[Rfam]
The family of this 59-nucleotide RNA sequence from Mediterraneibacter sp. gm002 is "pemK RNA".
RNA sequence: AUAAUGAAACUUCCGGAGAUAAGCUGCUCCGGUCCGAGAGGAUGGUGUGAUACCAAUGA
Numbered sequence: 001a002u003a004a005u006g007a008a009a010c011u012u013c014c015g016g017a018g019a020u021a022a023g024c025u026g027c028u029c030c031g032g033u034c035c036g037a038g039a040g041g042a043u044g045g046u047g048u049g050a051u052a053c054c055a056a057u058g059a
Stems, first nucleotide, its partner, number of pairs: 012056001013032006033042003043055003

Rfam classes the family as a cis-regulatory element. It scores 41 bits against the family's covariance model.